A member of the RNA family "Whalefall-1 RNA" from Ciconia maguari, 57 nucleotides long. The family has 14 seed sequences and 134 matches in Rfam 15.1. The base pairs follow the family's consensus structure, which is taken from published work.

RNA sequence: GCACCCCUCCUUGAGGAGGGAUAGCUUCCCGGCUUGCCUGGAAGCUGUGUGCAGGGU
Numbered sequence: 001g002c003a004c005c006c007c008u009c010c011u012u013g014a015g016g017a018g019g020g021a022u023a024g025c026u027u028c029c030c031g032g033c034u035u036g037c038c039u040g041g042a043a044g045c046u047g048u049g050u051g052c053a054g055g056g057u
Base pairs, nucleotide, nucleotide: 005020006019007018008017009016010015024045025044026043027042028041029040031038032037
Dot-bracket structure: ....((((((....))))))...((((((.((....)).))))))............
It is annotated as a small RNA.